[Rfam]
Background: Rfam assigns this 252-nucleotide RNA from Citrobacter rodentium to the family "Erse small RNA". The organism belongs to Citrobacter rodentium, within Bacteria.
RNA sequence: CCCGCGGAACUGCUGGUGCCUUAUACCGGCGAUAUUGCGGCCGAAGGGAUCAGCAAAGCCCUGCGCGGCGGGACUAAAUUUCUUCGCCACGGUCUUCAACGCCAACAGCGCUAUAUCGCCGAAGCGAUGACUGAAGAGUGGCGAAUGGCGCCCGGACCCCUUGAGGUCGCCUGGUUUGCGGAAGAGACGGCGGCGGUGGAUCGCGCUGUCGAUGCGCUGACCCGACGGCUGGAAAAACUGGAGGCUAAAUGA
Numbered sequence: 001c002c003c004g005c006g007g008a009a010c011u012g013c014u015g016g017u018g019c020c021u022u023a024u025a026c027c028g029g030c031g032a033u034a035u036u037g038c039g040g041c042c043g044a045a046g047g048g049a050u051c052a053g054c055a056a057a058g059c060c061c062u063g064c065g066c067g068g069c070g071g072g073a074c075u076a077a078a079u080u081u082c083u084u085c086g087c088c089a090c091g092g093u094c095u096u097c098a099a100c101g102c103c104a105a106c107a108g109c110g111c112u113a114u115a116u117c118g119c120c121g122a123a124g125c126g127a128u129g130a131c132u133g134a135a136g137a138g139u140g141g142c143g144a145a146u147g148g149c150g151c152c153c154g155g156a157c158c159c160c161u162u163g164a165g166g167u168c169g170c171c172u173g174g175u176u177u178g179c180g181g182a183a184g185a186g187a188c189g190g191c192g193g194c195g196g197u198g199g200a201u202c203g204c205g206c207u208g209u210c211g212a213u214g215c216g217c218u219g220a221c222c223c224g225a226c227g228g229c230u231g232g233a234a235a236a237a238c239u240g241g242a243g244g245c246u247a248a249a250u251g252a
Base pairs, nucleotide, nucleotide: 001244002243005240006082007081008080009079011077012054013053014052015051016050019047020046021045022044027040029038030037031036063074066071085214086213088211090208091207092206093205095203100143101142102141103140104139115128116127117126118125119124148179149178150177152174153173154172155171157169160166161165187197188196190194217231219229221228222227
The literature on the family includes a 2012 paper in FEBS Lett by Chen et al., "Esre: a novel essential non-coding RNA in Escherichia coli".